[Rfam]
RNA sequence: UAUUGGCUUAGUUAGGAGGCGUAUAUCAAUCUGAUCAUCAAUACUUUUCUGUAUUGUUUUGAUUUGUGGCUUUUUGUUUUCUGGAGAAGCUUCUGGUUUUUUUAAACCUAUCAAGCUUCUUCACUAAAAGUUUCAGACAUCA
Numbered sequence: 001u002a003u004u005g006g007c008u009u010a011g012u013u014a015g016g017a018g019g020c021g022u023a024u025a026u027c028a029a030u031c032u033g034a035u036c037a038u039c040a041a042u043a044c045u046u047u048u049c050u051g052u053a054u055u056g057u058u059u060u061g062a063u064u065u066g067u068g069g070c071u072u073u074u075u076g077u078u079u080u081c082u083g084g085a086g087a088a089g090c091u092u093c094u095g096g097u098u099u100u101u102u103u104a105a106a107c108c109u110a111u112c113a114a115g116c117u118u119c120u121u122c123a124c125u126a127a128a129a130g131u132u133u134c135a136g137a138c139a140u141c142a
Stems, first nucleotide, its partner, number of pairs: 004021002007018003033064005041057003045053001073136002076133001077130001083122009